[Rfam]
RNA sequence: UGACCCUUAAUUAAGCCGAGGGUCACCUAGCCAACUGACGUUGUUAGUGAAUGAAAUUGUUCACAUUUGUUUUAUCAGCCAAUCACCCUUUUGUGAUUGGCUUUUUUCUU
Dot-bracket structure: ((((((.............))))))................((...(((((((....)))))))........))....((((((((......))))))))..........
Numbered sequence: 001u002g003a004c005c006c007u008u009a010a011u012u013a014a015g016c017c018g019a020g021g022g023u024c025a026c027c028u029a030g031c032c033a034a035c036u037g038a039c040g041u042u043g044u045u046a047g048u049g050a051a052u053g054a055a056a057u058u059g060u061u062c063a064c065a066u067u068u069g070u071u072u073u074a075u076c077a078g079c080c081a082a083u084c085a086c087c088c089u090u091u092u093g094u095g096a097u098u099g100g101c102u103u104u105u106u107u108c109u110u
Stems, first nucleotide, its partner, number of pairs: 001025006042074002047064007079100008